[Rfam]
RNA sequence: GAGAGUCAUAUGAUGAUCAAUUGCAUAGUUCAAAUGAUCUAUUUAUGAUUAAACAGAAUCUUUAGUCUUUCGCUCCUAUCUGAUGACUUUC
Numbered sequence: 001g002a003g004a005g006u007c008a009u010a011u012g013a014u015g016a017u018c019a020a021u022u023g024c025a026u027a028g029u030u031c032a033a034a035u036g037a038u039c040u041a042u043u044u045a046u047g048a049u050u051a052a053a054c055a056g057a058a059u060c061u062u063u064a065g066u067c068u069u070u071c072g073c074u075c076c077u078a079u080c081u082g083a084u085g086a087c088u089u090u091c
Stems, first nucleotide, its partner, number of pairs: 004088005
The family of this 91-nucleotide RNA from Medicago truncatula is "Small nucleolar RNA snR60/Z15/Z230/Z193/J17". Pairs were carried over by alignment from the consensus structure. Lineage of the source: Eukaryota > Streptophytina > Spermatophyta > Fabaceae > Medicago. Clan: SNORD77 clan. Rfam links the family to the GO terms nucleolus and RNA processing.